Shown here is an 89-nucleotide sequence from Amborella trichopoda, a member of the family "Small nucleolar RNA U54". The base pairs follow the family's consensus structure, which was predicted with PFOLD. The family has 21 seed sequences and 614 matches in Rfam 15.1.
[Rfam]
RNA sequence: GGCUCGAUGAUUGAAUGCCUUUGUGCAAUAUACGCUAUUCUGAGGCAAUUGAAAACAUGCUGAAAGAAAAACUAUUUUUUAUGAGAGCU
Numbered sequence: 001g002g003c004u005c006g007a008u009g010a011u012u013g014a015a016u017g018c019c020u021u022u023g024u025g026c027a028a029u030a031u032a033c034g035c036u037a038u039u040c041u042g043a044g045g046c047a048a049u050u051g052a053a054a055a056c057a058u059g060c061u062g063a064a065a066g067a068a069a070a071a072c073u074a075u076u077u078u079u080u081a082u083g084a085g086a087g088c089u
Stems, first nucleotide, its partner, number of pairs: 001089005